[Rfam]
RNA: Small Cajal body specific RNA 11
Organism: Bos taurus
RNA sequence: UUGUAUGGGCCUAUGUCUUUUCUCCUCCCUUGUGCUCAAUUCUAACAGGGGAGGCUGACGGGACACACAGCAGUCUCCCUCUCAGUUUAGGAGAGCUGUCCUAAGAAUAGGGCUGGCUCUUAAAGGCACGAAGGGCAGU
Numbered sequence: 001u002u003g004u005a006u007g008g009g010c011c012u013a014u015g016u017c018u019u020u021u022c023u024c025c026u027c028c029c030u031u032g033u034g035c036u037c038a039a040u041u042c043u044a045a046c047a048g049g050g051g052a053g054g055c056u057g058a059c060g061g062g063a064c065a066c067a068c069a070g071c072a073g074u075c076u077c078c079c080u081c082u083c084a085g086u087u088u089a090g091g092a093g094a095g096c097u098g099u100c101c102u103a104a105g106a107a108u109a110g111g112g113c114u115g116g117c118u119c120u121u122a123a124a125g126g127c128a129c130g131a132a133g134g135g136c137a138g139u
Stems, first nucleotide, its partner, number of pairs: 002065003006061001008059001011057001024054003028050006078134003082131002085127004091121007098113006